Annotation:
Rfam assigns this 77-nucleotide RNA from Gorilla gorilla to the family "mir-1271 microRNA precursor family". The family has 13 seed sequences and 128 matches in Rfam 15.1.

RNA sequence: CAGAUCAGUGCUUGGCACCUAGCAAGCACUCAGUAAAUACUUGUUGAGUGCCUGCUAUGUGCCAGGCAUUGUGCUGA
Numbered sequence: 001c002a003g004a005u006c007a008g009u010g011c012u013u014g015g016c017a018c019c020u021a022g023c024a025a026g027c028a029c030u031c032a033g034u035a036a037a038u039a040c041u042u043g044u045u046g047a048g049u050g051c052c053u054g055c056u057a058u059g060u061g062c063c064a065g066g067c068a069u070u071g072u073g074c075u076g077a
Stems, first nucleotide, its partner, number of pairs: 002075002006071003010067009020057005026051010